[Rfam]
RNA: Plastid-psbA-3 3UTR RNA
RNA sequence: AAGGGAGCAAUAACCAAUUUCUUGUUCUAUCAAGAGGGCUGGUAUUGCUCCCUUCCU
Numbered sequence: 001a002a003g004g005g006a007g008c009a010a011u012a013a014c015c016a017a018u019u020u021c022u023u024g025u026u027c028u029a030u031c032a033a034g035a036g037g038g039c040u041g042g043u044a045u046u047g048c049u050c051c052c053u054u055c056c057u
Base pairs, nucleotide, nucleotide: 001054002053003052004051005050006049007048008047009046010045011044012043014041019036020035021034022033023032024031